[Rfam]
RNA: Mammalian CPEB3 ribozyme
Organism: Alligator mississippiensis
RNA sequence: UCACAAGUUCAAGGCCAUAGCAGAAAGGCUCUUGAUGCAGCCUGUCAGAUUUAAUGAAUCUGUGAAUUCUGCU
Numbered sequence: 001u002c003a004c005a006a007g008u009u010c011a012a013g014g015c016c017a018u019a020g021c022a023g024a025a026a027g028g029c030u031c032u033u034g035a036u037g038c039a040g041c042c043u044g045u046c047a048g049a050u051u052u053a054a055u056g057a058a059u060c061u062g063u064g065a066a067u068u069c070u071g072c073u
Stems, first nucleotide, its partner, number of pairs: 013042003019073007028036001046062007